[Rfam]
RNA: MIR848 microRNA precursor family
Organism: Arabidopsis lyrata
RNA sequence: UAUAUAGCUUGGCAAUCCCAUGUCAAAUAAGGCAAAGAAGAGGAACCCAAGGUAUGUUUCUCAUUUGCCUUCUUUGACAUGGGACUAACAGACUAA
Dot-bracket structure: .....((.(((..(.((((((((((((.((((((((...(((((((.........))))))).)))))))).)))))))))))).)..))).))..
Numbered sequence: 001u002a003u004a005u006a007g008c009u010u011g012g013c014a015a016u017c018c019c020a021u022g023u024c025a026a027a028u029a030a031g032g033c034a035a036a037g038a039a040g041a042g043g044a045a046c047c048c049a050a051g052g053u054a055u056g057u058u059u060c061u062c063a064u065u066u067g068c069c070u071u072c073u074u075u076g077a078c079a080u081g082g083g084a085c086u087a088a089c090a091g092a093c094u095a096a
Stems, first nucleotide, its partner, number of pairs: 006094002009091003014086001016084012029071008040062007